A member of the RNA family "UnaL2 LINE 3' element" from Triplophysa rosa, 54 nucleotides long. Rfam links the family to the GO term transposition, RNA-mediated. NCBI's taxonomy places the organism under Eukaryota, Metazoa, Actinopterygii, Actinopteri, Triplophysa. By type it is a cis-regulatory element.
Nucleotides: 054
Base pairs, nucleotide, nucleotide: 013043014041015040016039020036021035022034023033024032025031
Number, partner (000 for none) and nucleotide at each position: 001000a002000a003000a004000u005000g006000u007000c008000u009000c010000a011000c012000u013043u014041g015040u016039a017000a018000g019000u020036c021035g022034c023033u024032u025031u026000g027000g028000a029000u030000a031025a032024a033023a034022g035021c036020g037000u038000c039016u040015g041014c042000u043013a044000a045000a046000u047000g048000c049000a050000a051000g052000c053000c054000g